[Rfam]
RNA sequence: CCCUGGGUGGUGCCUCCAGGACUGUCCAACCUGAGAAUGGUAUCUGCAGGGUCAAUCUCAGGUUUGUCAGCCCGUGAGGUGCUGCCUCCUC
Numbered sequence: 001c002c003c004u005g006g007g008u009g010g011u012g013c014c015u016c017c018a019g020g021a022c023u024g025u026c027c028a029a030c031c032u033g034a035g036a037a038u039g040g041u042a043u044c045u046g047c048a049g050g051g052u053c054a055a056u057c058u059c060a061g062g063u064u065u066g067u068c069a070g071c072c073c074g075u076g077a078g079g080u081g082c083u084g085c086c087u088c089c090u091c
Stems, first nucleotide, its partner, number of pairs: 005088003008084009019073002022070003026066001028064009038054002